[Rfam]
RNA sequence: GUUCCCAGUGAUGAUCAUCUUUAACCAUGCUAAUUCUGAGCUAUAUUGAUGAACCUGAUUCUUUUAAUCUCCUGAGGGAACU
Numbered sequence: 001g002u003u004c005c006c007a008g009u010g011a012u013g014a015u016c017a018u019c020u021u022u023a024a025c026c027a028u029g030c031u032a033a034u035u036c037u038g039a040g041c042u043a044u045a046u047u048g049a050u051g052a053a054c055c056u057g058a059u060u061c062u063u064u065u066a067a068u069c070u071c072c073u074g075a076g077g078g079a080a081c082u
Base pairs, nucleotide, nucleotide: 001081002080003079004078005077

Rfam assigns this 82-nucleotide RNA from Protea cynaroides to the family "Small nucleolar RNA snoR53Y".
Rfam 15.1 lists 513 matches to the family in 230 species.
It scores 61 bits against the family's covariance model.